Source information: The record is an 82-nucleotide RNA sequence from Otolemur garnettii, which matches "Small nucleolar RNA SNORD79" in Rfam. By type it is a C/D-box small nucleolar RNA. The family's consensus secondary structure was predicted with PFOLD. Its family is annotated with RNA processing and nucleolus in the Gene Ontology. About the family: snoRNA U79 or Z22 is found in intron 7 of the gas5 gene in humans and is also present in mice.

RNA sequence: UGCUGUUAGUGAUGACUUAAAAGAACAAUAGAUGGGAAUCUCUCUGAAAGAGAAUGAAGAUUAGUUUGGAACUGAAACAGCA
Dot-bracket structure: (((((((....................................................................)))))))
Numbered sequence: 001u002g003c004u005g006u007u008a009g010u011g012a013u014g015a016c017u018u019a020a021a022a023g024a025a026c027a028a029u030a031g032a033u034g035g036g037a038a039u040c041u042c043u044c045u046g047a048a049a050g051a052g053a054a055u056g057a058a059g060a061u062u063a064g065u066u067u068g069g070a071a072c073u074g075a076a077a078c079a080g081c082a
Stems, first nucleotide, its partner, number of pairs: 001082007